[Rfam]
RNA sequence: ACGGGUCAAAUGCAGUAGGAAACGAACCGGACCCUUUGUGAAAGGAGAGAUACUUCCCGGGCGAUAAGCCCGAAACCGCCCUUUGUGGCCCCUUCACGGACGCUGCUUGCAUGGCGGGGUAUUGUGCUACCCCCGUUUCAUGUGAAGGGUCUACGCGGUUUAGCCGCACACCUACACCACAACCGCACGGAGGCGCGAAUACUUAUUAUGACCAGC
Numbered sequence: 001a002c003g004g005g006u007c008a009a010a011u012g013c014a015g016u017a018g019g020a021a022a023c024g025a026a027c028c029g030g031a032c033c034c035u036u037u038g039u040g041a042a043a044g045g046a047g048a049g050a051u052a053c054u055u056c057c058c059g060g061g062c063g064a065u066a067a068g069c070c071c072g073a074a075a076c077c078g079c080c081c082u083u084u085g086u087g088g089c090c091c092c093u094u095c096a097c098g099g100a101c102g103c104u105g106c107u108u109g110c111a112u113g114g115c116g117g118g119g120u121a122u123u124g125u126g127c128u129a130c131c132c133c134c135g136u137u138u139c140a141u142g143u144g145a146a147g148g149g150u151c152u153a154c155g156c157g158g159u160u161u162a163g164c165c166g167c168a169c170a171c172c173u174a175c176a177c178c179a180c181a182a183c184c185g186c187a188c189g190g191a192g193g194c195g196c197g198a199a200u201a202c203u204u205a206u207u208a209u210g211a212c213c214a215g216c
Base pairs, nucleotide, nucleotide: 004033005032006031007030059071060070061069062068078196079195080193081192082191083190084189085188088151090149091148092147093146094145095144096143097142102110103109113137114136115135116134117133118132119131155186156185157184158183159182161181162173163172